The family of this 105-nucleotide RNA from Populus deltoides is "Small nucleolar RNA snoR99". Pairs were carried over by alignment from the consensus structure, which was predicted with WAR.

RNA sequence: GUGCUUUAGGGAUGAACAAGUCCCUUACAAGUAAUUAUCACCACCCAAUUGCCCUUUUCAGCAGUCUAUUGAAUUUCUUGCUGAACAUUAGAGGAUGGAGAAUGC
Numbered sequence: 001g002u003g004c005u006u007u008a009g010g011g012a013u014g015a016a017c018a019a020g021u022c023c024c025u026u027a028c029a030a031g032u033a034a035u036u037a038u039c040a041c042c043a044c045c046c047a048a049u050u051g052c053c054c055u056u057u058u059c060a061g062c063a064g065u066c067u068a069u070u071g072a073a074u075u076u077c078u079u080g081c082u083g084a085a086c087a088u089u090a091g092a093g094g095a096u097g098g099a100g101a102a103u104g105c
Base pairs, nucleotide, nucleotide: 041098042097043096045094057085058084059083060082061081062080063079064078